[Rfam]
RNA sequence: AUGCAUCCAAUAGGAAUUGAACCUACGACUUCCCAAUUAUGAGUUAGGUGCUUUUACCAUCCAACCAUGGAUGC
Dot-bracket structure: ..((((((..((((.......)))).............(((.(((.((((.......)))).))))))))))))
Numbered sequence: 001a002u003g004c005a006u007c008c009a010a011u012a013g014g015a016a017u018u019g020a021a022c023c024u025a026c027g028a029c030u031u032c033c034c035a036a037u038u039a040u041g042a043g044u045u046a047g048g049u050g051c052u053u054u055u056a057c058c059a060u061c062c063a064a065c066c067a068u069g070g071a072u073g074c
Stems, first nucleotide, its partner, number of pairs: 003074006011025004039068003043065003047061004
This 74-nucleotide sequence from Taxus chinensis belongs to the Rfam family "Plastid-ycf2 5UTR RNA". A search with the family's covariance model found it, with a score of 85 bits. Rfam 15.1 lists 3,521 matches to the family in 417 species. Rfam describes the family as follows. Plastid ycf2 is a non-coding RNA (ncRNA) recognised in plastids. It was found in the prime untranslated region (5UTR) of ycf2 genes, it presents a tRNA-like motif which suggests it can be involved in mRNA maturation, particularly involved in defining the precise 5' end of the transcript. The source organism's lineage runs through Eukaryota, Streptophytina, Spermatophyta, Taxaceae and Taxus. The family's RNA type in Rfam is cis-regulatory element. The family's consensus secondary structure was predicted with LocARNA.